The family of this 57-nucleotide RNA from Yoonia rosea is "sul1 RNA". The organism belongs to Yoonia, within Bacteria. It is annotated as a riboswitch.

[Rfam]
RNA sequence: CCUGGACCCGAGAGCGAUCUUGGGUGGCUCUUCCGGCCGCUGAUCCGCCGGACAACC
Numbered sequence: 001c002c003u004g005g006a007c008c009c010g011a012g013a014g015c016g017a018u019c020u021u022g023g024g025u026g027g028c029u030c031u032u033c034c035g036g037c038c039g040c041u042g043a044u045c046c047g048c049c050g051g052a053c054a055a056c057c
Stems, first nucleotide, its partner, number of pairs: 006025006013018001032052006